Overview: Shown here is a 93-nucleotide sequence from Paenibacillus validus, a member of the family "c-di-GMP-I riboswitch aptamer".

RNA sequence: UCGUUUUUUUGACAAACUUGUCGAAAGGCAAGGACGCAAAGCUUAGGGUCUAAGAUCUUCUUUAUUGAGGAUGACGACAGCCUGGCCGCCGAU
Numbered sequence: 001u002c003g004u005u006u007u008u009u010u011g012a013c014a015a016a017c018u019u020g021u022c023g024a025a026a027g028g029c030a031a032g033g034a035c036g037c038a039a040a041g042c043u044u045a046g047g048g049u050c051u052a053a054g055a056u057c058u059u060c061u062u063u064a065u066u067g068a069g070g071a072u073g074a075c076g077a078c079a080g081c082c083u084g085g086c087c088g089c090c091g092a093u
Base pairs, nucleotide, nucleotide: 013036017032018031019030020029021028022027041086042085043084045083046082047081048078049077050076055072056071057070058069059068060067